[Rfam]
RNA sequence: UCGAUCGUGAGGUCGAAUCUGAAGGAAGUCGGCGGCAAAUCUCCGGUCCGAGGAACACGAAUCUCAUAUCAGGCUAACGUUCGUUGGAUGAGGCUGCAUUACAAGUCAAAGUCCUUACUGCCGAAGGCGAAUGGAAGUAAAUGAGGCGGGUAGAUGGAGAGGAAGAUAGCGUU
Numbered sequence: 001u002c003g004a005u006c007g008u009g010a011g012g013u014c015g016a017a018u019c020u021g022a023a024g025g026a027a028g029u030c031g032g033c034g035g036c037a038a039a040u041c042u043c044c045g046g047u048c049c050g051a052g053g054a055a056c057a058c059g060a061a062u063c064u065c066a067u068a069u070c071a072g073g074c075u076a077a078c079g080u081u082c083g084u085u086g087g088a089u090g091a092g093g094c095u096g097c098a099u100u101a102c103a104a105g106u107c108a109a110a111g112u113c114c115u116u117a118c119u120g121c122c123g124a125a126g127g128c129g130a131a132u133g134g135a136a137g138u139a140a141a142u143g144a145g146g147c148g149g150g151u152a153g154a155u156g157g158a159g160a161g162g163a164a165g166a167u168a169g170c171g172u173u
Stems, first nucleotide, its partner, number of pairs: 001016006028173001030171002036165001040160006046151005062146006073138003078133006086114004092107004
RNA: Group II catalytic intron D1-D4-3
Organism: Cohnella lupini